This 45-nucleotide RNA sequence from Cellvibrio sp. PSBB006 belongs to the Rfam family "Guanidine-II riboswitch aptamer (mini-ykkC)". It scores 34 bits against the family's covariance model.
RNA sequence: CAGUGGACGACCACUGUCGUAAGAAAACCCUGCGGGACGGCCCGC
Numbered sequence: 001c002a003g004u005g006g007a008c009g010a011c012c013a014c015u016g017u018c019g020u021a022a023g024a025a026a027a028c029c030c031u032g033c034g035g036g037a038c039g040g041c042c043c044g045c
Base pairs, nucleotide, nucleotide: 001016002015003014004013005012006011032045033044034043035042036041
Dot-bracket structure: ((((((....))))))...............(((((....)))))

Taxonomically the source falls in Cellvibrio (Bacteria, Pseudomonadati, Gammaproteobacteria, Cellvibrionales).